[Rfam]
RNA sequence: AUGUGUUACAGCUCUUUUACAGUUUGUCUAACAGGAUUUCUGACUUAUGUUGGAACCUUA
Number, nucleotide and partner (000 for none) at each position: 001a000002u000003g000004u000005g000006u000007u000008a000009c000010a000011g000012c000013u000014c000015u000016u000017u000018u000019a000020c000021a000022g000023u000024u000025u000026g000027u000028c000029u000030a000031a000032c000033a000034g057035g056036a000037u000038u055039u054040c053041u052042g051043a050044c049045u000046u000047a000048u000049g044050u043051u042052g041053g040054a039055a038056c035057c034058u000059u000060a000